[Rfam]
RNA sequence: AUGGUCCGGCUUGUGGACGGCCCGGACACCGGGGAGCGAUACCGGGCUAGUCUGACGGCGUGCCCUGCCCGGGAGGCUCCACCAGGGAUCGCUCCGGGCAGCCGCAAAGCCGACAGCCGUCGCAUGUGAGGGAGCCCUUUCCAUG
Dot-bracket structure: ............................................................(((..((((((((...................))))))))...)))..((.(((....)))))......................